Rfam assigns this 582-nucleotide part of an RNA from Halorubellus sp. JP-L1 to the family "Archaeal large subunit ribosomal RNA".
RNA sequence: CCCCCAGGGGGAAGCGAAGACCCUAUAGAGCUUUACUGCAGGCUGUCGCUGAGACACGGUCGCUAGUGUGCAGCAUAGGUAGGAGGCGUUACACAGGUACCCGCGCUAGCGGGCCACCGAGCCAUCAGUGAAAUACUACCCACUAGUGACUGUGACUCUCACUCCGGGAGGAGGACACCGGUAGCCGGGCAGUUUGACUGGGGCGGUACACGCUUGAAAAGAUAUCGAGCGUGCCCCAAGAUCACCUCAAUCGCGUCGGAGACGCGAUGAAGAGCGCAAGAGCAUAAGGUGGUCUGACAGUGUCAUUCCCAACGAGUGACACUGACACGAGAGUGUGGUCUAGCGAACCAAUUUGCCUGCUUGAUGCGGGCCAUUGCUGACAGAAAAGCUACCUUAGGGAUAACAGAGUCGUCACGCGCAAGAGCACAUAUCGACCGCGUGGCUUGCUACCUCGAUGUCGGUUCCCUCCAUCCUGCCCGUGCAGAAGCGGGCAAGGGUGAGGUUGUUCGCCUAUUAAAGGAGGUCGUGAGCUGGGUUUAGACCGUCGUGAGACAGGUCGGCUGCUAUCUACUGGGGGUGUUA
Numbered sequence: 001c002c003c004c005c006a007g008g009g010g011g012a013a014g015c016g017a018a019g020a021c022c023c024u025a026u027a028g029a030g031c032u033u034u035a036c037u038g039c040a041g042g043c044u045g046u047c048g049c050u051g052a053g054a055c056a057c058g059g060u061c062g063c064u065a066g067u068g069u070g071c072a073g074c075a076u077a078g079g080u081a082g083g084a085g086g087c088g089u090u091a092c093a094c095a096g097g098u099a100c101c102c103g104c105g106c107u108a109g110c111g112g113g114c115c116a117c118c119g120a121g122c123c124a125u126c127a128g129u130g131a132a133a134u135a136c137u138a139c140c141c142a143c144u145a146g147u148g149a150c151u152g153u154g155a156c157u158c159u160c161a162c163u164c165c166g167g168g169a170g171g172a173g174g175a176c177a178c179c180g181g182u183a184g185c186c187g188g189g190c191a192g193u194u195u196g197a198c199u200g201g202g203g204c205g206g207u208a209c210a211c212g213c214u215u216g217a218a219a220a221g222a223u224a225u226c227g228a229g230c231g232u233g234c235c236c237c238a239a240g241a242u243c244a245c246c247u248c249a250a251u252c253g254c255g256u257c258g259g260a261g262a263c264g265c266g267a268u269g270a271a272g273a274g275c276g277c278a279a280g281a282g283c284a285u286a287a288g289g290u291g292g293u294c295u296g297a298c299a300g301u302g303u304c305a306u307u308c309c310c311a312a313c314g315a316g317u318g319a320c321a322c323u324g325a326c327a328c329g330a331g332a333g334u335g336u337g338g339u340c341u342a343g344c345g346a347a348c349c350a351a352u353u354u355g356c357c358u359g360c361u362u363g364a365u366g367c368g369g370g371c372c373a374u375u376g377c378u379g380a381c382a383g384a385a386a387a388g389c390u391a392c393c394u395u396a397g398g399g400a401u402a403a404c405a406g407a408g409u410c411g412u413c414a415c416g417c418g419c420a421a422g423a424g425c426a427c428a429u430a431u432c433g434a435c436c437g438c439g440u441g442g443c444u445u446g447c448u449a450c451c452u453c454g455a456u457g458u459c460g461g462u463u464c465c466c467u468c469c470a471u472c473c474u475g476c477c478c479g480u481g482c483a484g485a486a487g488c489g490g491g492c493a494a495g496g497g498u499g500a501g502g503u504u505g506u507u508c509g510c511c512u513a514u515u516a517a518a519g520g521a522g523g524u525c526g527u528g529a530g531c532u533g534g535g536u537u538u539a540g541a542c543c544g545u546c547g548u549g550a551g552a553c554a555g556g557u558c559g560g561c562u563g564c565u566a567u568c569u570a571c572u573g574g575g576g577g578u579g580u581u582a
Base pairs, nucleotide, nucleotide: 001577002576003575004574005573006572007571010569011568012567014564015563022398023397024396025395027394028393029390030389031388032387033386035193036192037191038190042185043184044183045182046181047180048179051158052157053156055154056153057152058151059150060149061148062147063146064145065144066143067142068141078140079139080138081137082136085123086122087121100113101112102111103110104109162173163172164171165170196209197207198206199205210232211231212230213229214228215227235338236337241293242292243291244290245289246288247273248272250268251267252266253265254264255263274283275282298324299323300322301321302320303319304318305317306316326335328333349376350375351374352373355371356370357369358368359367407448408447409446411445412442413441414440415439416438417437418436422432423431459534460532461531462530463529464526465523466522467521468520469519472497473496476491477490478489479488480487500512501511502510503509540558541557542556543555544553545552546551
NCBI's taxonomy places the organism under Archaea, Halobacteria, Halobacteriales, Halorubellaceae, Halorubellus. Rfam links the family to the GO terms ribosome and structural constituent of ribosome.